[Rfam]
RNA sequence: GGUUGGUCCGACGGCAGUGGUGACGCAACAAACACAAUCGAAUGCUACGGCACUGAAUAACAGACAUAUGGUAACAGAACCUUCUUCUCCUUCCACCGCCGACCUUGACCAGCCUUUU
Numbered sequence: 001g002g003u004u005g006g007u008c009c010g011a012c013g014g015c016a017g018u019g020g021u022g023a024c025g026c027a028a029c030a031a032a033c034a035c036a037a038u039c040g041a042a043u044g045c046u047a048c049g050g051c052a053c054u055g056a057a058u059a060a061c062a063g064a065c066a067u068a069u070g071g072u073a074a075c076a077g078a079a080c081c082u083u084c085u086u087c088u089c090c091u092u093c094c095a096c097c098g099c100c101g102a103c104c105u106u107g108a109c110c111a112g113c114c115u116u117u118u
Base pairs, nucleotide, nucleotide: 001114002113003112004111005110006109007108008107010106011105015101017096018095019094020093049081050080053077054076